[Rfam]
RNA sequence: GGAAGUCCCUCGCGCGGCGAUAUCUCGCCCAACUCCCCCAGGGCCGGAAGGCAGCAAGGGUAAGUGAGCUCUAUCGGGUGCGCGAGGGACCUUUUCA
Numbered sequence: 001g002g003a004a005g006u007c008c009c010u011c012g013c014g015c016g017g018c019g020a021u022a023u024c025u026c027g028c029c030c031a032a033c034u035c036c037c038c039c040a041g042g043g044c045c046g047g048a049a050g051g052c053a054g055c056a057a058g059g060g061u062a063a064g065u066g067a068g069c070u071c072u073a074u075c076g077g078g079u080g081c082g083c084g085a086g087g088g089a090c091c092u093u094u095u096c097a
Stems, first nucleotide, its partner, number of pairs: 005090010015078001018076005024068005035060003043052003
Overview:
The record is a 97-nucleotide RNA from Mumia sp. ZJ1417, which matches "Bacterial small signal recognition particle RNA" in Rfam. It is annotated as a non-coding RNA gene. Pairs were carried over by alignment from the consensus structure, which is taken from published work.